[Rfam]
RNA sequence: GUCAACUACCCACCGACACCUUUGGUGAUCGGUGGGCUUGUGACUUCGGUUGCAAGUCCUGUUGAUUAGCCUUGAGAGCCUUCGGGCUUUCGUUCUAAAGGAAUAUAUAGGCACCCUGGUAAUAUUAGUACGGAUGCUCCACAAGUCCCAGGCUCUGCGGUUAGUGGUUAAACAUCUCUGAGAGGCAGGAGAAGUGCUGCUGACAUUUAAAACCCUCAAGAACAUAGGCGAUGUGGAUCAAC
Numbered sequence: 001g002u003c004a005a006c007u008a009c010c011c012a013c014c015g016a017c018a019c020c021u022u023u024g025g026u027g028a029u030c031g032g033u034g035g036g037c038u039u040g041u042g043a044c045u046u047c048g049g050u051u052g053c054a055a056g057u058c059c060u061g062u063u064g065a066u067u068a069g070c071c072u073u074g075a076g077a078g079c080c081u082u083c084g085g086g087c088u089u090u091c092g093u094u095c096u097a098a099a100g101g102a103a104u105a106u107a108u109a110g111g112c113a114c115c116c117u118g119g120u121a122a123u124a125u126u127a128g129u130a131c132g133g134a135u136g137c138u139c140c141a142c143a144a145g146u147c148c149c150a151g152g153c154u155c156u157g158c159g160g161u162u163a164g165u166g167g168u169u170a171a172a173c174a175u176c177u178c179u180g181a182g183a184g185g186c187a188g189g190a191g192a193a194g195u196g197c198u199g200c201u202g203a204c205a206u207u208u209a210a211a212a213c214c215c216u217c218a219a220g221a222a223c224a225u226a227g228g229c230g231a232u233g234u235g236g237a238u239c240a241a242c
Stems, first nucleotide, its partner, number of pairs: 001066006010036002012033005037056008069229004076089005092223005099216003111158002115152005121146001160204009172195002175192005
HNH endonuclease-associated RNA and ORF (HEARO) RNA: a 242-nucleotide RNA sequence from Desulfobacter latus. By type it is a non-coding RNA gene. A reference for the family is Weinberg et al. (2009), "Exceptional structured noncoding RNAs revealed by bacterial metagenome analysis", Nature. The match comes from Rfam's covariance-model search (91 bits).